[Rfam]
RNA sequence: CUCGUGCUCCGGGGUCGGUGAAAUUCCGAGCCGGCGGUCACAGUCCGCGACCCGAGGCCAUCUGGCCGAGGCUGAACCAGUGAAAUUCUGGUACCGACAGUUACAGUCUGGAUGGAAGAAGCACAGG
Numbered sequence: 001c002u003c004g005u006g007c008u009c010c011g012g013g014g015u016c017g018g019u020g021a022a023a024u025u026c027c028g029a030g031c032c033g034g035c036g037g038u039c040a041c042a043g044u045c046c047g048c049g050a051c052c053c054g055a056g057g058c059c060a061u062c063u064g065g066c067c068g069a070g071g072c073u074g075a076a077c078c079a080g081u082g083a084a085a086u087u088c089u090g091g092u093a094c095c096g097a098c099a100g101u102u103a104c105a106g107u108c109u110g111g112a113u114g115g116a117a118g119a120a121g122c123a124c125a126g127g
Base pairs, nucleotide, nucleotide: 004124005123006122007121008120010118016028017027018026030107031106032096033095034048035047036046037045043094044093052071053070076092077091078090079089080088098110099109100108

The family of this 127-nucleotide RNA from Leucobacter sp. cx-328 is "FMN riboswitch aptamer (RFN element)". From the family's description: The RFN element is a highly conserved domain that is found frequently in the 5'-untranslated regions of prokaryotic mRNAs that encode for flavin mononucleotide (FMN) biosynthesis and transport proteins. This element is a metabolite-dependent riboswitch that directly binds FMN in the absence of proteins. A search with the family's covariance model found it, with a score of 94 bits. Pairs were carried over by alignment from the consensus structure, which is taken from published work.